The record is an 86-nucleotide RNA sequence from Drosophila melanogaster, which matches "mir-981 microRNA precursor family" in Rfam. The source organism's lineage runs through Eukaryota, Protostomia, Pterygota, Brachycera and Sophophora.

[Rfam]
RNA sequence: CCUCACUGAAGUCGGGUUUCGUUAGCAGCGGGCUGUUUUAAUAAAUUCAACAAGUUCGUUGUCGACGAAACCUGCAUGCUGUGUGG
Dot-bracket structure: ((.(((......(((((((((........(((((..................)))))........)))))))))......))).))